[Rfam]
RNA sequence: AGCAUAGCUUGCGCUCAGGCUUUCGGUACGAAUGAAGGUACCCAUUCGUUAGACCUGUCCCGCGGACAGGGAAUCGUUACGGAUUUAGCGCACUGAGCGAUCCUCACGGCGCAAGCG
Numbered sequence: 001a002g003c004a005u006a007g008c009u010u011g012c013g014c015u016c017a018g019g020c021u022u023u024c025g026g027u028a029c030g031a032a033u034g035a036a037g038g039u040a041c042c043c044a045u046u047c048g049u050u051a052g053a054c055c056u057g058u059c060c061c062g063c064g065g066a067c068a069g070g071g072a073a074u075c076g077u078u079a080c081g082g083a084u085u086u087a088g089c090g091c092a093c094u095g096a097g098c099g100a101u102c103c104u105c106a107c108g109g110c111g112c113a114a115g116c117g
Stems, first nucleotide, its partner, number of pairs: 007116009024076004028049007054070007081103003086100001088098002
This 117-nucleotide RNA belongs to the Rfam family "DUF3268 RNA". Rfam classes the family as a small RNA.